[Rfam]
RNA sequence: AGUGGAGGACUCCAAAGGGAUCGCAUUGAUCUCACCAUCCGCCGCCGCCGCCGGCACGCACAGCUGCGCGCAAGGACAAGAUCAGUGCAAUCCCUUUGGAAUUUUCCAC
Numbered sequence: 001a002g003u004g005g006a007g008g009a010c011u012c013c014a015a016a017g018g019g020a021u022c023g024c025a026u027u028g029a030u031c032u033c034a035c036c037a038u039c040c041g042c043c044g045c046c047g048c049c050g051c052c053g054g055c056a057c058g059c060a061c062a063g064c065u066g067c068g069c070g071c072a073a074g075g076a077c078a079a080g081a082u083c084a085g086u087g088c089a090a091u092c093c094c095u096u097u098g099g100a101a102u103u104u105u106c107c108a109c
Stems, first nucleotide, its partner, number of pairs: 002109005008103002011100011023088003026084001028083005
Shown here is a 109-nucleotide RNA from Panicum hallii, a member of the family "mir-393 microRNA precursor family". The literature on the family includes a 2012 paper in J Plant Physiol by Kruszka et al., "Role of microRNAs and other sRNAs of plants in their changing environments". The organism belongs to Panicum hallii, within Eukaryota. Its family is annotated with RISC complex and miRNA-mediated post-transcriptional gene silencing in the Gene Ontology.